RNA sequence: UUAGUCAAUGGUCAGCCGACGCGUAACGAAGUGAACGAGUUUAAAGAAUUGGCUAUUUUUAAAUU
Numbered sequence: 001u002u003a004g005u006c007a008a009u010g011g012u013c014a015g016c017c018g019a020c021g022c023g024u025a026a027c028g029a030a031g032u033g034a035a036c037g038a039g040u041u042u043a044a045a046g047a048a049u050u051g052g053c054u055a056u057u058u059u060u061a062a063a064u065u
Stems, first nucleotide, its partner, number of pairs: 002055008